[Rfam]
Shown here is a 132-nucleotide RNA from Catagonus wagneri, a member of the family "Small nucleolar RNA SNORA72". Gene Ontology terms of the family: RNA processing and nucleolus. The literature on the family includes a 1997 paper in Genes Dev by Ganot et al., "The family of box ACA small nucleolar RNAs is defined by an evolutionarily conserved secondary structure and ubiquitous sequence elements essential for RNA accumulation". U72 is a member of the H/ACA class of snoRNAs. The snoRNA gene is located in intron 4 of the ribosomal L30 protein gene in human, mouse and chicken. The organism belongs to Catagonus, within Eukaryota. By type it is an H/ACA-box small nucleolar RNA.

RNA sequence: CUGCAAAUAUUCCCGCUGUUCUGAUUUUGUAAUGAUCAGGGCAGGCUCAACAUUCACUAUAUUAAGACCACGCAUGUGUCCCUGGACCUCGUUCUUUCCACAGGUCUGGUUUCAUAAAUGCUGGUGAUAAAC
Numbered sequence: 001c002u003g004c005a006a007a008u009a010u011u012c013c014c015g016c017u018g019u020u021c022u023g024a025u026u027u028u029g030u031a032a033u034g035a036u037c038a039g040g041g042c043a044g045g046c047u048c049a050a051c052a053u054u055c056a057c058u059a060u061a062u063u064a065a066g067a068c069c070a071c072g073c074a075u076g077u078g079u080c081c082c083u084g085g086a087c088c089u090c091g092u093u094c095u096u097u098c099c100a101c102a103g104g105u106c107u108g109g110u111u112u113c114a115u116a117a118a119u120g121c122u123g124g125u126g127a128u129a130a131a132c
Stems, first nucleotide, its partner, number of pairs: 003057001016044011067125004072121002082109008